[Rfam]
RNA sequence: UCAAAGGCUUUCUAGUAUUCCCCCCUUUUAUUAUCUGACAAAGCGAAUUCGCUUUGUCCUUUUUU
Numbered sequence: 001u002c003a004a005a006g007g008c009u010u011u012c013u014a015g016u017a018u019u020c021c022c023c024c025c026u027u028u029u030a031u032u033a034u035c036u037g038a039c040a041a042a043g044c045g046a047a048u049u050c051g052c053u054u055u056g057u058c059c060u061u062u063u064u065u
Stems, first nucleotide, its partner, number of pairs: 003028005037058009
The record is a 65-nucleotide sequence from Bacillus sp. SJS, which matches "Bacillus sRNA ncr1241" in Rfam. A search with the family's covariance model found it, with a score of 68 bits. A reference for the family is Irnov et al. (2010), "Identification of regulatory RNAs in Bacillus subtilis", Nucleic Acids Res.